[Rfam]
A member of the RNA family "U4 spliceosomal RNA" from Colobus angolensis, 133 nucleotides long. A search with the family's covariance model found it, with a score of 64 bits.
RNA sequence: AGCUUUGUGCAGUGGCAGUAUUAUAGCCAAUCAGGUUUACCUGAGGCGCGAUUAUUGCUAACUGAAAACUUUUCCCACUGUGACAACUUGCAAUAUAGUCAGCAUUGGCGACAUUUGACUGUCUCCAUGAAGA
Numbered sequence: 001a002g003c004u005u006u007g008u009g010c011a012g013u014g015g016c017a018g019u020a021u022u023a024u025a026g027c028c029a030a031u032c033a034g035g036u037u038u039a040c041c042u043g044a045g046g047c048g049c050g051a052u053u054a055u056u057g058c059u060a061a062c063u064g065a066a067a068a069c070u071u072u073u074c075c076c077a078c079u080g081u082g083a084c085a086a087c088u089u090g091c092a093a094u095a096u097a098g099u100c101a102g103c104a105u106u107g108g109c110g111a112c113a114u115u116u117g118a119c120u121g122u123c124u125c126c127a128u129g130a131a132g133a
Stems, first nucleotide, its partner, number of pairs: 020052003024048001026047003034042002078108002080105003086099003122133003
The family's RNA type in Rfam is spliceosomal small nuclear RNA. The base pairs follow the family's consensus structure, which is taken from published work. Taxonomically the source falls in Colobus angolensis (Eukaryota, Opisthokonta, Dipnotetrapodomorpha, Tetrapoda).